[Rfam]
RNA sequence: GUGCCUGAAACUAAUGAGUAAGGAAAAUAACUGGAUUAGUGAAAGCUGAUUCAUUUUGUGCAAUUCAGUUUAAUAGCUGUUUUGUGUAAAAGAAAUAAAUAUUUUAAGGGUAAAGGCCGUCCUUUUGUGCGACUCGUCUACUUUGCGAGUUGUGCUUGUUGAUGUGGCCUCGCCC
Number, nucleotide and partner (000 for none) at each position: 001g000002u000003g000004c023005c022006u021007g000008a019009a000010a000011c000012u000013a000014a000015u000016g000017a000018g000019u008020a000021a006022g005023g004024a000025a000026a000027a000028u000029a000030a000031c000032u053033g052034g051035a050036u049037u048038a047039g046040u000041g000042a000043a000044a000045g000046c039047u038048g037049a036050u035051u034052c033053a032054u094055u093056u092057u091058g000059u000060g000061c000062a000063a000064u000065u000066c000067a000068g000069u000070u000071u000072a000073a000074u000075a000076g000077c000078u000079g000080u000081u000082u000083u000084g000085u000086g000087u000088a000089a000090a000091a057092g056093a055094a054095a000096u000097a000098a000099a000100u000101a000102u000103u000104u000105u000106a000107a000108g175109g174110g173111u172112a000113a000114a170115g169116g168117c167118c166119g165120u164121c000122c000123u000124u158125u000126u000127g155128u154129g153130c152131g151132a000133c149134u148135c147136g146137u145138c000139u000140a000141c000142u000143u000144u000145g137146c136147g135148a134149g133150u000151u131152g130153u129154g128155c127156u000157u000158g124159u000160u000161g000162a000163u000164g120165u119166g118167g117168c116169c115170u114171c000172g111173c110174c109175c108

U12 minor spliceosomal RNA: a 175-nucleotide sequence from Brachionus calyciflorus.
The base pairs follow the family's consensus structure.
The organism belongs to Brachionus, within Eukaryota.
Rfam 15.1 lists 2,106 matches to the family in 1,170 species.
Rfam links the family to the GO terms mRNA branch site recognition, pre-mRNA branch point binding and U12 snRNP.